[Rfam]
RNA sequence: UAGGUUUGUCCUAAGUUAAACUUGGUUAACUUUGACCAAGUCUAUAGAAAACUAUAGCAACAACUAUACUACCCAACAUAUGCACUAUCAAUAUAUAUUUCAUGGUGGAUGCAAUGAAACAAAUUUGGUAUUGUAAAUAUUAUUAUUCUUUUCUAUUAAUUUGGUCAAAGUUGGCUAAGUUUGACUUAGGACAAACCUAA
Numbered sequence: 001u002a003g004g005u006u007u008g009u010c011c012u013a014a015g016u017u018a019a020a021c022u023u024g025g026u027u028a029a030c031u032u033u034g035a036c037c038a039a040g041u042c043u044a045u046a047g048a049a050a051a052c053u054a055u056a057g058c059a060a061c062a063a064c065u066a067u068a069c070u071a072c073c074c075a076a077c078a079u080a081u082g083c084a085c086u087a088u089c090a091a092u093a094u095a096u097a098u099u100u101c102a103u104g105g106u107g108g109a110u111g112c113a114a115u116g117a118a119a120c121a122a123a124u125u126u127g128g129u130a131u132u133g134u135a136a137a138u139a140u141u142a143u144u145a146u147u148c149u150u151u152u153c154u155a156u157u158a159a160u161u162u163g164g165u166c167a168a169a170g171u172u173g174g175c176u177a178a179g180u181u182u183g184a185c186u187u188a189g190g191a192c193a194a195a196c197c198u199a200a
Stems, first nucleotide, its partner, number of pairs: 005195005011189016031169005045155007055145003059141002062138001065135004072128002075125002